RNA sequence: GGGGCUGUUCUGGAUUCGACAGGGUAGUUCGAGUUUGACUAGCAUGCUAUCGGCAGAUAUAAAAAUGCAUGGUUAAAUAUAACCGGAAAUCAAAAUUACGCUUACGCAGCUUAAGAAGAAGCUGCAAAUUCAUUCAGGUUUGUCUAUAGACCUGUCUUGAAUUCCAGAAAUAUAGAAUAGUGUAUGACCCUGCCUUCUUAAGGGUAUUCAUGAGAUGAAUAAGAAUAGAUAAACAUUUGUGUGUAGGUUGGCGUGUGUUUAUCGAAACUUUGCAAUCUACUAAGCAUGUAGAAGGUUAAAUGAUUGGCUAUUUUGGACAGGGGUUCAAAUCCCCUCAGCUCCACCA
Number, nucleotide and partner (000 for none) at each position: 001g342002g341003g340004g339005c338006u337007g336008u000009u000010c000011u000012g000013g000014a000015u000016u000017c000018g000019a000020c315021a314022g313023g312024g311025u310026a309027g308028u307029u306030c000031g000032a000033g301034u300035u299036u298037g297038a296039c295040u294041a000042g000043c288044a287045u286046g285047c284048u059049a058050u057051c056052g000053g068054c067055a066056g051057a050058u049059a048060u000061a000062a000063a000064a000065a000066u055067g054068c053069a000070u000071g000072g000073u000074u000075a000076a000077a000078u000079a000080u000081a000082a000083c000084c000085g000086g000087a000088a000089a000090u000091c000092a000093a000094a000095a000096u000097u000098a000099c000100g000101c000102u000103u126104a000105c000106g125107c124108a123109g122110c121111u000112u000113a000114a000115g000116a000117a000118g000119a000120a000121g110122c109123u108124g107125c106126a103127a163128a162129u161130u160131c159132a158133u000134u000135c154136a153137g152138g151139u150140u149141u000142g000143u176144c175145u174146a173147u172148a171149g140150a139151c138152c137153u136154g135155u000156c000157u000158u132159g131160a130161a129162u128163u127164c000165c000166a000167g000168a000169a000170a000171u148172a147173u146174a145175g144176a143177a000178u000179a000180g211181u210182g209183u000184a207185u206186g205187a000188c203189c000190c000191u000192g000193c000194c223195u222196u221197c000198u000199u000200a000201a000202g000203g188204g000205u186206a185207u184208u000209c182210a181211u180212g000213a000214g000215a000216u000217g000218a000219a000220u000221a196222a195223g194224a000225a000226u000227a000228g263229a262230u261231a260232a259233a258234c257235a256236u255237u000238u253239g252240u251241g000242u000243g280244u279245a278246g277247g000248u274249u000250g000251g240252c239253g238254u000255g236256u235257g234258u233259u232260u231261a230262u229263c228264g000265a000266a000267a000268c000269u000270u000271u000272g000273c000274a248275a000276u000277c246278u245279a244280c243281u000282a000283a000284g047285c046286a045287u044288g043289u000290a000291g000292a000293a000294g040295g039296u038297u037298a036299a035300a034301u033302g000303a000304u000305u000306g029307g028308c027309u026310a025311u024312u023313u022314u021315g020316g000317a000318c000319a335320g334321g333322g332323g331324u000325u000326c000327a000328a000329a000330u000331c323332c322333c321334c320335u319336c007337a006338g005339c004340u003341c002342c001343a000344c000345c000346a000
RNA: transfer-messenger RNA
Organism: Hujiaoplasma nucleasis